[Rfam]
RNA sequence: AUGAGGGCGACAGAGUGUGGGGAGGAAGCGUGGAGCGAAACUGCGAGCCGAUGGACAAGAACCCGAUAUGAGGCGUUGCCGAUCAGGGCGAGCGGGCAAGUGACUGCAAAGCGCUUGUGAUCAAGGAGCGGUGACGUAAAUCCGGCGGUUAUGCAGCGAAGGAGUGCGUUC
Numbered sequence: 001a002u003g004a005g006g007g008c009g010a011c012a013g014a015g016u017g018u019g020g021g022g023a024g025g026a027a028g029c030g031u032g033g034a035g036c037g038a039a040a041c042u043g044c045g046a047g048c049c050g051a052u053g054g055a056c057a058a059g060a061a062c063c064c065g066a067u068a069u070g071a072g073g074c075g076u077u078g079c080c081g082a083u084c085a086g087g088g089c090g091a092g093c094g095g096g097c098a099a100g101u102g103a104c105u106g107c108a109a110a111g112c113g114c115u116u117g118u119g120a121u122c123a124a125g126g127a128g129c130g131g132u133g134a135c136g137u138a139a140a141u142c143c144g145g146c147g148g149u150u151a152u153g154c155a156g157c158g159a160a161g162g163a164g165u166g167c168g169u170u171c
Stems, first nucleotide, its partner, number of pairs: 001016002006011001028171001030169003036162001041156005046150005062145002065142003073137003077133005083127001086114001088112002092107004
A member of the RNA family "Group II catalytic intron D1-D4-3" from Paraburkholderia sp. BL23I1N1, 171 nucleotides long.
Taxonomically the source falls in Paraburkholderia (Bacteria, Pseudomonadota, Burkholderiales, Burkholderiaceae).